[Rfam]
RNA sequence: UUGCGCAAGUCAUGUUUUCGUCAGCAACAUUCGCAAUCCUGUGCCGUCUGGCAAAGCCUAUUCUUUUAACCAGAAUCACUGCCCGGACACAGCGUCCAGCGCGGCCCGCCGAAUCAGGCCAGCCGCGGCCUCCAGCCCGACAGGGUUGACCAGGCCACCGGGCUACGCACUGUCCAGAAGACGAUGCGAGGUGAGCCGACGUCAAAAGCGUCGAGCCAGGACGAAGCAUUCCAGAGAGGGCCGUUGAGCCCUCUU
Numbered sequence: 001u002u003g004c005g006c007a008a009g010u011c012a013u014g015u016u017u018u019c020g021u022c023a024g025c026a027a028c029a030u031u032c033g034c035a036a037u038c039c040u041g042u043g044c045c046g047u048c049u050g051g052c053a054a055a056g057c058c059u060a061u062u063c064u065u066u067u068a069a070c071c072a073g074a075a076u077c078a079c080u081g082c083c084c085g086g087a088c089a090c091a092g093c094g095u096c097c098a099g100c101g102c103g104g105c106c107c108g109c110c111g112a113a114u115c116a117g118g119c120c121a122g123c124c125g126c127g128g129c130c131u132c133c134a135g136c137c138c139g140a141c142a143g144g145g146u147u148g149a150c151c152a153g154g155c156c157a158c159c160g161g162g163c164u165a166c167g168c169a170c171u172g173u174c175c176a177g178a179a180g181a182c183g184a185u186g187c188g189a190g191g192u193g194a195g196c197c198g199a200c201g202u203c204a205a206a207a208g209c210g211u212c213g214a215g216c217c218a219g220g221a222c223g224a225a226g227c228a229u230u231c232c233a234g235a236g237a238g239g240g241c242c243g244u245u246g247a248g249c250c251c252u253c254u255u
Base pairs, nucleotide, nucleotide: 001012003010004009043057044056076194077193078192079191080190081163082162083161084160085097086096087095088094101126102125103124104123105122108119109118110117127156128155129154130153131152134147135146136145137144138143166188167187168186171183172182173181174180195216196215197213198212199211200210201209202208234255235254236253237252239250240249241248
Background: This 255-nucleotide RNA from Pseudomonas graminis belongs to the Rfam family "Pseudomonas sRNA P24". The literature on the family includes a 2006 paper in Nucleic Acids Res by Livny et al., "Identification of 17 Pseudomonas aeruginosa sRNAs and prediction of sRNA-encoding genes in 10 diverse pathogens using the bioinformatic tool sRNAPredict2". Rfam's curators write: This small RNA (sRNA) was computationally identified in the genome of the opportunistic pathogen Pseudomonas aeruginosa and its expression verified by Northern blot analysis. P24 is conserved across several Pseudomonas species and in Azotobacter vinelandii. A search with the family's covariance model found it, with a score of 234 bits.